This 138-nucleotide RNA sequence from Paludibaculum fermentans belongs to the Rfam family "c-di-AMP riboswitch aptamer (ydaO/yuaA leader)".
The source organism's lineage runs through Bacteria, Pseudomonadati, Bryobacterales, Bryobacteraceae and Paludibaculum.
RNA sequence: AAUCUGGGAAAGUCUAGCUUCCUGCUCAGGUGGGAAGGCGGGGGACCCAAGUCCCGGGGCGUAUCGGCAGCGUUUGGCCGUAGGGUACUUUUCAGCCCGAGCCCGUCAGCUAACCUCGCAGACGAAUUGAGAAGCCGC
Numbered sequence: 001a002a003u004c005u006g007g008g009a010a011a012g013u014c015u016a017g018c019u020u021c022c023u024g025c026u027c028a029g030g031u032g033g034g035a036a037g038g039c040g041g042g043g044g045a046c047c048c049a050a051g052u053c054c055c056g057g058g059g060c061g062u063a064u065c066g067g068c069a070g071c072g073u074u075u076g077g078c079c080g081u082a083g084g085g086u087a088c089u090u091u092u093c094a095g096c097c098c099g100a101g102c103c104c105g106u107c108a109g110c111u112a113a114c115c116u117c118g119c120a121g122a123c124g125a126a127u128u129g130a131g132a133a134g135c136c137g138c
Base pairs, nucleotide, nucleotide: 012123013122014121018037019036020035021034022033023032024031025030038119039118040117041116042115043114048056057104058103059102065080066079067078068077083098084097085096086095